[Rfam]
RNA sequence: UCACAUGUAGUGCCGAGGUAACUAAAACUCUGCGUUUUGUUAGCUUCAGAGUUUUGUUACCCCGGCUCUCUGUGGA
Numbered sequence: 001u002c003a004c005a006u007g008u009a010g011u012g013c014c015g016a017g018g019u020a021a022c023u024a025a026a027a028c029u030c031u032g033c034g035u036u037u038u039g040u041u042a043g044c045u046u047c048a049g050a051g052u053u054u055u056g057u058u059a060c061c062c063c064g065g066c067u068c069u070c071u072g073u074g075g076a
Base pairs, nucleotide, nucleotide: 001076002075004074005073006072007071009069010068012066013065014064015063017061019059020058021057022056024055025054026053027052028051029050030049031048032047034044035043

Shown here is a 76-nucleotide RNA from Branchiostoma floridae, a member of the family "mir-4872 microRNA precursor family". Lineage of the source: Eukaryota > Metazoa > Deuterostomia > Amphioxiformes > Branchiostoma. The match comes from Rfam's covariance-model search (81 bits). Its family is annotated with RISC complex and miRNA-mediated post-transcriptional gene silencing in the Gene Ontology.